Cyano-2 RNA: a 201-nucleotide RNA.
RNA sequence: GACGGUCACGGGAGAGCGAUCCGAGGGCCGGCAGAACCCCGUCUCCCGUGCGAGCGAUCGCGGGAGACAACGUUCUGCGCUGUUUAAAUCUGAAGAAAACUAGUGCGUAUGGCCCAUCUGGGAACGGGUGAACGAGCUUUACCUUUCAGUUUCCGCAUCGCUCGGGAAGGGCAACCUCUUCUCGCGGUCUCCGCAGUCCUU
Numbered sequence: 001g002a003c004g005g006u007c008a009c010g011g012g013a014g015a016g017c018g019a020u021c022c023g024a025g026g027g028c029c030g031g032c033a034g035a036a037c038c039c040c041g042u043c044u045c046c047c048g049u050g051c052g053a054g055c056g057a058u059c060g061c062g063g064g065a066g067a068c069a070a071c072g073u074u075c076u077g078c079g080c081u082g083u084u085u086a087a088a089u090c091u092g093a094a095g096a097a098a099a100c101u102a103g104u105g106c107g108u109a110u111g112g113c114c115c116a117u118c119u120g121g122g123a124a125c126g127g128g129u130g131a132a133c134g135a136g137c138u139u140u141a142c143c144u145u146u147c148a149g150u151u152u153c154c155g156c157a158u159c160g161c162u163c164g165g166g167a168a169g170g171g172c173a174a175c176c177u178c179u180u181c182u183c184g185c186g187g188u189c190u191c192c193g194c195a196g197u198c199c200u201u
Base pairs, nucleotide, nucleotide: 003030004029005028006027007025009023010022011021012020031078032077033076034075035074036073037072041068042067043066044065045064046063047062048061049060050059147193149191153187154186155185156184164183165182166181167180168179169178170177171176